[Rfam]
RNA sequence: CAGCCCGCUUUGGCACUAGCACAUUUUUGCUUUGCUUUAUGUGUUUUGAGCAAUUAUGUGUAGUGCCAAUAUGGGAGA
Numbered sequence: 001c002a003g004c005c006c007g008c009u010u011u012g013g014c015a016c017u018a019g020c021a022c023a024u025u026u027u028u029g030c031u032u033u034g035c036u037u038u039a040u041g042u043g044u045u046u047u048g049a050g051c052a053a054u055u056a057u058g059u060g061u062a063g064u065g066c067c068a069a070u071a072u073g074g075g076a077g078a
Base pairs, nucleotide, nucleotide: 004075005074006073007072010069011068012067013066014065015064016063017062019061020060021059022058023057024056027053028052029051030050031049032048